The record is a 135-nucleotide RNA from bacterium 1xD8-6, which matches "Ribosomal protein L10 leader" in Rfam. A search with the family's covariance model found it, with a score of 72 bits. It is annotated as a cis-regulatory leader. The literature on the family includes a 1994 paper in Prog Nucleic Acid Res Mol Biol by Zengel and Lindahl, "Diverse mechanisms for regulating ribosomal protein synthesis in Escherichia coli".

Nucleotides: 135
Stems, first nucleotide, its partner, number of pairs: 028065006034047005097120009
Number, partner (000 for none) and nucleotide at each position: 001000g002000a003000a004000a005000g006000c007000g008000a009000a010000a011000c012000u013000a014000c015000a016000c017000u018000g019000c020000c021000g022000u023000a024000g025000a026000c027000a028065g029064u030063a031062g032061g033060u034047g035046u036045c037044g038043g039000g040000g041000a042000a043038c044037c045036g046035a047034c048000g049000u050000a051000a052000g053000g054000a055000c056000a057000a058000g059000c060033g061032c062031c063030u064029a065028c066000c067000g068000a069000g070000g071000a072000a073000g074000a075000u076000a077000g078000a079000a080000u081000u082000u083000a084000u085000u086000a087000g088000a089000a090000u091000u092000u093000u094000a095000c096000a097120c098119c099118u100117c101116u102115c103114u104113g105112u106000u107000u108000a109000u110000g111000u112105g113104c114103a115102g116101g117100g118099a119098g120097g121000u122000u123000u124000u125000c126000u127000g128000u129000u130000u131000u132000a133000u134000a135000a